RNA: mir-363 microRNA precursor family
RNA sequence: GCUGUUGUCGGGUGGAUCACAGUGCAAUUUUCGGCCCGCUAGAAAAAAUUGCACGGUAUCCAUCUGUAAACCGUA
Dot-bracket structure: ........(((((((((.((..(((((((((.............)))))))))..))))))))))).........